[Rfam]
RNA sequence: AAAAAUUAUAGAGGCGCGGGUCAUUAUCAGUAAACACAAUAAGCUGGCAGGCGAUGAAUUGUGGUGAAAGGAAUACCCGCCGAAGCAAAGGUUCUGCCAACACCUUUUGCUGGUCUUGUAUUGAACAAAUACUUGACUGUCACCCGGUUCUUAGACCCGGUUGGAGCGCUAUAUUGCCU
Number, nucleotide and partner (000 for none) at each position: 001a000002a000003a000004a000005a000006u000007u173008a172009u171010a170011g169012a000013g000014g000015c000016g080017c079018g078019g077020g076021u075022c000023a074024u073025u072026a000027u000028c000029a000030g000031u000032a000033a065034a000035c063036a062037c061038a060039a059040u058041a000042a000043g000044c000045u000046g000047g000048c000049a000050g000051g000052c000053g000054a000055u000056g000057a000058a040059u039060u038061g037062u036063g035064g000065u033066g000067a000068a000069a000070g000071g000072a025073a024074u023075a021076c020077c019078c018079g017080c016081c000082g000083a000084a111085g110086c109087a108088a107089a106090g105091g104092u000093u102094c000095u100096g000097c000098c000099a000100a095101c000102a093103c000104c091105u090106u089107u088108u087109g086110c085111u084112g138113g137114u136115c135116u000117u000118g132119u131120a130121u129122u128123g000124a000125a000126c000127a000128a122129a121130u120131a119132c118133u000134u000135g115136a114137c113138u112139g000140u164141c163142a162143c000144c160145c159146g158147g000148u000149u000150c000151u000152u000153a000154g000155a000156c000157c000158c146159g145160g144161u000162u142163g141164g140165a000166g000167c000168g000169c011170u010171a009172u008173a007174u000175u000176g000177c000178c000179u000
A member of the RNA family "Lysine riboswitch aptamer" from Sporomusa acidovorans, 179 nucleotides long. From the family's description: Riboswitches are metabolite binding domains within certain messenger RNAs that serve as precision sensors for their corresponding targets.